Source information: The record is a 116-nucleotide RNA from Candidatus Kurthia intestinigallinarum, which matches "FMN riboswitch aptamer (RFN element)" in Rfam. Its family is annotated with FMN binding in the Gene Ontology.
[Rfam]
RNA sequence: AACUUCCUUCGGGGUAGGGUGCAAUUCCCAAUCGGCGGUUAUAGCCCGCGAGCUUUCGAGCAGGAUUCGGUGAAAUUCCGGAGCCGACAGUAUAGUCUGGAUGAGAGAAGGAAUCG
Numbered sequence: 001a002a003c004u005u006c007c008u009u010c011g012g013g014g015u016a017g018g019g020u021g022c023a024a025u026u027c028c029c030a031a032u033c034g035g036c037g038g039u040u041a042u043a044g045c046c047c048g049c050g051a052g053c054u055u056u057c058g059a060g061c062a063g064g065a066u067u068c069g070g071u072g073a074a075a076u077u078c079c080g081g082a083g084c085c086g087a088c089a090g091u092a093u094a095g096u097c098u099g100g101a102u103g104a105g106a107g108a109a110g111g112a113a114u115c116g
Stems, first nucleotide, its partner, number of pairs: 004113007017029003031096002033086002035049004044084002054060001066082005088099003